[Rfam]
RNA sequence: AAUGGCUACUAGGGGUGUCCGUUAAGCUCGGACUGAGAGCGGAACGCGAUAAAGUUCCGAAACCCUCGGGACCUGAUCUGGAUCAUACCAGCGUAGGAAAGUAGAAGGCUACAUAC
Number, nucleotide and partner (000 for none) at each position: 001a000002a000003u000004g000005g000006c104007u103008a102009c101010u100011a066012g065013g064014g063015g000016u060017g033018u032019c031020c030021g029022u000023u000024a000025a000026g000027c000028u000029c021030g020031g019032a018033c017034u000035g000036a000037g000038a000039g000040c059041g058042g057043a056044a055045c000046g000047c000048g000049a000050u000051a000052a000053a000054g000055u044056u043057c042058c041059g040060a016061a000062a000063c014064c013065c012066u011067c000068g000069g000070g000071a000072c097073c096074u095075g094076a000077u000078c091079u090080g089081g088082a000083u000084c000085a000086u000087a000088c081089c080090a079091g078092c000093g000094u075095a074096g073097g072098a000099a000100a010101g009102u008103a007104g006105a000106a000107g000108g000109c000110u000111a000112c000113a000114u000115a000116c000
The record is a 116-nucleotide sequence from Effusibacillus dendaii, which matches "TPP riboswitch aptamer (THI element)" in Rfam. Rfam links the family to the GO term thiamine pyrophosphate binding. It scores 82 bits against the family's covariance model. Pairs were carried over by alignment from the consensus structure, which is taken from published work.